[Rfam]
RNA sequence: GCCCUGGUCGGAAACCAGGGCACGAAAGAAGGAG
Numbered sequence: 001g002c003c004c005u006g007g008u009c010g011g012a013a014a015c016c017a018g019g020g021c022a023c024g025a026a027a028g029a030a031g032g033a034g
Stems, first nucleotide, its partner, number of pairs: 001021008
Rfam assigns this 34-nucleotide sequence to the family "L31-Coriobacteria ribosomal protein leader".
The family's consensus secondary structure is taken from published work.
Rfam's curators put it in the seed alignment.
Rfam classes the family as a cis-regulatory leader.